[Rfam]
RNA: Guanidine-II riboswitch aptamer (mini-ykkC)
RNA sequence: CGGCCGGGACGACCCGGCUUAUCACAGACAUGGAUGGGGACGACCUCA
Numbered sequence: 001c002g003g004c005c006g007g008g009a010c011g012a013c014c015c016g017g018c019u020u021a022u023c024a025c026a027g028a029c030a031u032g033g034a035u036g037g038g039g040a041c042g043a044c045c046u047c048a
Base pairs, nucleotide, nucleotide: 002019003018004017005016006015007014008013035048036047037046038045039044